[Rfam]
RNA sequence: AAUUUAUUUUAGUAAUAACACACACAUAUCGUUCGGGUAAAUCGGGGUGCCAAACGGUCGGUUUACUUGGUAUGUGGAGGCUCAAC
Number, nucleotide and partner (000 for none) at each position: 001a000002a000003u000004u000005u000006a000007u000008u000009u000010u000011a000012g000013u000014a000015a000016u000017a000018a000019c000020a000021c000022a000023c076024a075025c074026a073027u072028a071029u070030c069031g000032u000033u000034c000035g000036g067037g066038u065039a064040a063041a062042u061043c060044g059045g000046g000047g000048u000049g058050c057051c056052a000053a000054a000055c000056g051057g050058u049059c044060g043061g042062u041063u040064u039065a038066c037067u036068u000069g030070g029071u028072a027073u026074g025075u024076g023077g000078a000079g000080g000081c000082u000083c000084a000085a000086c000
This 86-nucleotide sequence from Actinobacillus succinogenes belongs to the Rfam family "t44 RNA". NCBI's taxonomy places the organism under Bacteria, Gammaproteobacteria, Pasteurellales, Actinobacillus, Actinobacillus succinogenes. The sequence is in the family's curated seed alignment. This family consists of a number of bacterial RNA genes of between 135 and 170 bases in length. The family's consensus secondary structure was predicted with LocARNA.